[Rfam]
RNA sequence: AAGUAAAUCAGUAUAUGGGGAUGUUUCCCGGACAUUCAACGGCACGGAAGCAGGAAAAAUAAAUGGGGGAAUAUUUCCCCCAUUUAUUGUUAACU
Numbered sequence: 001a002a003g004u005a006a007a008u009c010a011g012u013a014u015a016u017g018g019g020g021a022u023g024u025u026u027c028c029c030g031g032a033c034a035u036u037c038a039a040c041g042g043c044a045c046g047g048a049a050g051c052a053g054g055a056a057a058a059a060u061a062a063a064u065g066g067g068g069g070a071a072u073a074u075u076u077c078c079c080c081c082a083u084u085u086a087u088u089g090u091u092a093a094c095u
Stems, first nucleotide, its partner, number of pairs: 008038001010036003016032001019029002061085011
The record is a 95-nucleotide sequence from Cronobacter sakazakii, which matches "sraA" in Rfam. A reference for the family is Argaman et al. (2001), "Novel small RNA-encoding genes in the intergenic regions of Escherichia coli", Curr Biol. Taxonomically the source falls in Cronobacter sakazakii (Bacteria, Pseudomonadati, Gammaproteobacteria, Enterobacteriaceae).